[Rfam]
RNA sequence: GGUGCGACUCGUUGUGGAAGACUAGUGAUUUUGUUGUUGUAAAUGUAACUUUUUGACAACAAGUCACAGUCUACCUCACUGAGUCACACU
Numbered sequence: 001g002g003u004g005c006g007a008c009u010c011g012u013u014g015u016g017g018a019a020g021a022c023u024a025g026u027g028a029u030u031u032u033g034u035u036g037u038u039g040u041a042a043a044u045g046u047a048a049c050u051u052u053u054u055g056a057c058a059a060c061a062a063g064u065c066a067c068a069g070u071c072u073a074c075c076u077c078a079c080u081g082a083g084u085c086a087c088a089c090u
Stems, first nucleotide, its partner, number of pairs: 002089003006085003010081002013078002016075002019072005025067007033060006
Annotation
The record is a 90-nucleotide RNA sequence from Cynoglossus semilaevis, which matches "mir-7 microRNA precursor family" in Rfam. The match comes from Rfam's covariance-model search (76 bits). This family represents the microRNA (miRNA) precursor mir-7. The family's consensus secondary structure was predicted with PFOLD. Taxonomically the source falls in Cynoglossus (Eukaryota, Opisthokonta, Eumetazoa, Chordata).